[Rfam]
RNA sequence: AAUUACUUGGGCCAAGGGAAUGCAAACUGUGAUCAUCCCGAAAGUUUGUUCGUUUGGCUUAAGUUAUUU
Numbered sequence: 001a002a003u004u005a006c007u008u009g010g011g012c013c014a015a016g017g018g019a020a021u022g023c024a025a026a027c028u029g030u031g032a033u034c035a036u037c038c039c040g041a042a043a044g045u046u047u048g049u050u051c052g053u054u055u056g057g058c059u060u061a062a063g064u065u066a067u068u069u
Stems, first nucleotide, its partner, number of pairs: 001068003005064009018051001022049004027044002
A member of the RNA family "mir-375 microRNA precursor family" from Drosophila melanogaster, 69 nucleotides long. Rfam links the family to the GO terms miRNA-mediated post-transcriptional gene silencing and RISC complex. The source organism's lineage runs through Eukaryota, Altocrustacea, Schizophora, Drosophila and Sophophora. The sequence is in the family's curated seed alignment. For this family Rfam cites "The developmental miRNA profiles of zebrafish as determined by small RNA cloning" (Chen et al., Genes Dev, 2005).